[Rfam]
RNA sequence: CACCUCUCGGUGAAGAUAAGCAGUUCAGGGAGCGGGUUAGUACACUCCGAAAGGAGCGCUGGAAAGCUCGUAAAGCUAAAAGGAG
Numbered sequence: 001c002a003c004c005u006c007u008c009g010g011u012g013a014a015g016a017u018a019a020g021c022a023g024u025u026c027a028g029g030g031a032g033c034g035g036g037u038u039a040g041u042a043c044a045c046u047c048c049g050a051a052a053g054g055a056g057c058g059c060u061g062g063a064a065a066g067c068u069c070g071u072a073a074a075g076c077u078a079a080a081a082g083g084a085g
Stems, first nucleotide, its partner, number of pairs: 001012004019077003032071006043061002045056003

Notes:
RT-18 RNA: an 85-nucleotide RNA sequence.